Shown here is a 78-nucleotide sequence from Notodromas monacha, a member of the family "Small nucleolar RNA SNORD18".
For this family Rfam cites "Two different snoRNAs are encoded in introns of amphibian and human L1 ribosomal protein genes" (Prislei et al., Nucleic Acids Res, 1993).
It scores 42 bits against the family's covariance model.
[Rfam]
RNA sequence: AUAUUAUGAUGAGAUGAAUCCAUUGGUCCGUGUUUCUGACUUCUGUGUGAAGAGUAAUGGAAUUAAUUCGCUGAAUGU
Numbered sequence: 001a002u003a004u005u006a007u008g009a010u011g012a013g014a015u016g017a018a019u020c021c022a023u024u025g026g027u028c029c030g031u032g033u034u035u036c037u038g039a040c041u042u043c044u045g046u047g048u049g050a051a052g053a054g055u056a057a058u059g060g061a062a063u064u065a066a067u068u069c070g071c072u073g074a075a076u077g078u
Base pairs, nucleotide, nucleotide: 001078002077003076004075